[Rfam]
RNA: mir-146 microRNA precursor family
RNA sequence: CUGUGUGCUCAGCUUUGAGAACUGAAUUCCAUAGGCUUUAAUAUAUAAACAAAAGCUAUGGACCCAGUUCUGCCGCUGGGCACUAACUA
Numbered sequence: 001c002u003g004u005g006u007g008c009u010c011a012g013c014u015u016u017g018a019g020a021a022c023u024g025a026a027u028u029c030c031a032u033a034g035g036c037u038u039u040a041a042u043a044u045a046u047a048a049a050c051a052a053a054a055g056c057u058a059u060g061g062a063c064c065c066a067g068u069u070c071u072g073c074c075g076c077u078g079g080g081c082a083c084u085a086a087c088u089a
Stems, first nucleotide, its partner, number of pairs: 008080002011077003018071007033057002